Rfam assigns this 154-nucleotide sequence from Anaerotruncus colihominis to the family "glmS glucosamine-6-phosphate activated ribozyme aptamer". Rfam classes the family as a riboswitch. This entry contains a glucosamine-6-phosphate activated ribozyme that is found in the mRNA for GlmS. GlmS is an enzyme that uses fructose-6-phosphate and glutamine to generate glucosamine-6-phosphate. The literature on the family includes a 2004 paper in Nature by Winkler et al., "Control of gene expression by a natural metabolite-responsive ribozyme". The organism belongs to Anaerotruncus, within Bacteria.
[Rfam]
RNA sequence: AAUCUGUCAGAAGCGCCAGAACCGCCUAAGAGCGGUUGACGAGGCGGGAGGAGGAUCGAAUGUUCGGCGGAUGCCUCCCCGUCCCCGCUUCCGGACGCAGCCUGUCCGAAAACUUCCGGGCAACCGGAUCGACAGACGGACCGGCGGGAAGCAA
Dot-bracket structure: ...................((((((......)))))).........(((((....((((....))))......))))).(((((........)))))...((.(((........(((((....)))))..........))).))..........
Numbered sequence: 001a002a003u004c005u006g007u008c009a010g011a012a013g014c015g016c017c018a019g020a021a022c023c024g025c026c027u028a029a030g031a032g033c034g035g036u037u038g039a040c041g042a043g044g045c046g047g048g049a050g051g052a053g054g055a056u057c058g059a060a061u062g063u064u065c066g067g068c069g070g071a072u073g074c075c076u077c078c079c080c081g082u083c084c085c086c087g088c089u090u091c092c093g094g095a096c097g098c099a100g101c102c103u104g105u106c107c108g109a110a111a112a113c114u115u116c117c118g119g120g121c122a123a124c125c126g127g128a129u130c131g132a133c134a135g136a137c138g139g140a141c142c143g144g145c146g147g148g149a150a151g152c153a154a
Stems, first nucleotide, its partner, number of pairs: 020037006047078005056067004080097005101144002104141003115128005